[Rfam]
RNA sequence: CUACUACCUCCGUCCCAAAAUAUAAGAACGUUUUUGGUACUAUGCUAGUGUAGAAAACGUUCUUAUAUUUUGGGACGGAAGGAGUAC
Numbered sequence: 001c002u003a004c005u006a007c008c009u010c011c012g013u014c015c016c017a018a019a020a021u022a023u024a025a026g027a028a029c030g031u032u033u034u035u036g037g038u039a040c041u042a043u044g045c046u047a048g049u050g051u052a053g054a055a056a057a058c059g060u061u062c063u064u065a066u067a068u069u070u071u072g073g074g075a076c077g078g079a080a081g082g083a084g085u086a087c
Base pairs, nucleotide, nucleotide: 003085004084005083007081009079010078011077013075014074015073016072017071019069020068021067022066023065024064025063026062027061028060029059030058031057032056033055034054035053037051038050039049040048041047